RNA sequence: CAAAGUGAUGAAUUAAAUCACAAUUGUCACUACCUCUGAGGCAUUGUCUUUCCUGUUUUUAGCCUUGUGAUUGCAUCUAAGAACGGAGAUAUGAAG
Numbered sequence: 001c002a003a004a005g006u007g008a009u010g011a012a013u014u015a016a017a018u019c020a021c022a023a024u025u026g027u028c029a030c031u032a033c034c035u036c037u038g039a040g041g042c043a044u045u046g047u048c049u050u051u052c053c054u055g056u057u058u059u060u061a062g063c064c065u066u067g068u069g070a071u072u073g074c075a076u077c078u079a080a081g082a083a084c085g086g087a088g089a090u091a092u093g094a095a096g
Base pairs, nucleotide, nucleotide: 004031005030006029007028008027009026070090071089072088
Dot-bracket structure: ...((((((................))))))......................................(((...............)))......